Small nucleolar RNA SNORA14: a 132-nucleotide sequence from Trichechus manatus.
Rfam's curators write: ACA14 is a member of the H/ACA class of snoRNA that guide the sites of modification of uridines to pseudouridines.
RNA sequence: CAGCAUUCUUAAACCCCCUUGGCUCUGCUCUAAGUACUUCCAAGGUAUGAGUGAAUGCUACAGAAAUAGCAGGGGAGUCCAAAGGGCUGCGCAGUGCCUGUGGCUCAGCCUUAUUUCAUACCUGCCACAUCU
Numbered sequence: 001c002a003g004c005a006u007u008c009u010u011a012a013a014c015c016c017c018c019u020u021g022g023c024u025c026u027g028c029u030c031u032a033a034g035u036a037c038u039u040c041c042a043a044g045g046u047a048u049g050a051g052u053g054a055a056u057g058c059u060a061c062a063g064a065a066a067u068a069g070c071a072g073g074g075g076a077g078u079c080c081a082a083a084g085g086g087c088u089g090c091g092c093a094g095u096g097c098c099u100g101u102g103g104c105u106c107a108g109c110c111u112u113a114u115u116u117c118a119u120a121c122c123u124g125c126c127a128c129a130u131c132u
Stems, first nucleotide, its partner, number of pairs: 003058004008051004017045006026036001062132003067127001069125005083112007091104002095100001